[Rfam]
RNA sequence: GCUGAGCUUGGUAACGCAAGCCUGUAACCUGAGUGGGGGCAUUAAGGUGAUGGAACAUGGGUUCGUUUCAUUUAGCUGGAUCCCAUCGUGGUCUACCUCUGACUUGCCCAUUCCAAGCCGUGAGUUGGGCCGAGGGAAUUGAGCGAAAGUUCCGGUUCUCGUGGUUCUUAGAGCGGAGAGUACUGCGUGAGGCUGGUUUCACAGAGCAGCGAUCAUCUCCCGCUCUAGGCAGUGGAAGGAUAACUAGUCAGUUCCACUAGGAUCCGUCAUAACUCAAUGAGCUGAUCCCUCACUGAACCACAUCUUU
Numbered sequence: 001g002c003u004g005a006g007c008u009u010g011g012u013a014a015c016g017c018a019a020g021c022c023u024g025u026a027a028c029c030u031g032a033g034u035g036g037g038g039g040c041a042u043u044a045a046g047g048u049g050a051u052g053g054a055a056c057a058u059g060g061g062u063u064c065g066u067u068u069c070a071u072u073u074a075g076c077u078g079g080a081u082c083c084c085a086u087c088g089u090g091g092u093c094u095a096c097c098u099c100u101g102a103c104u105u106g107c108c109c110a111u112u113c114c115a116a117g118c119c120g121u122g123a124g125u126u127g128g129g130c131c132g133a134g135g136g137a138a139u140u141g142a143g144c145g146a147a148a149g150u151u152c153c154g155g156u157u158c159u160c161g162u163g164g165u166u167c168u169u170a171g172a173g174c175g176g177a178g179a180g181u182a183c184u185g186c187g188u189g190a191g192g193c194u195g196g197u198u199u200c201a202c203a204g205a206g207c208a209g210c211g212a213u214c215a216u217c218u219c220c221c222g223c224u225c226u227a228g229g230c231a232g233u234g235g236a237a238g239g240a241u242a243a244c245u246a247g248u249c250a251g252u253u254c255c256a257c258u259a260g261g262a263u264c265c266g267u268c269a270u271a272a273c274u275c276a277a278u279g280a281g282c283u284g285a286u287c288c289c290u291c292a293c294u295g296a297a298c299c300a301c302a303u304c305u306u307u
Base pairs, nucleotide, nucleotide: 001040002039003038004023006021007020008019009018010017028037029036030035044306045305046304047303048302049301051300052299053298056295057294058292059291060290061286062285063284065282066281068280069279070278071277072276074274075273077271078265079264080263081262082261083260085258089256090255091254099251100250101249102248103247104246106244108239109238111237112236113235114234115233117230118229119228122225123224124223125222127167128166129165130164131163132162134160135159136158137157138156139155140154141153142151143150144149168173175220176219177218178217179216186211187210188209193204194203195202
RNA: Plant signal recognition particle RNA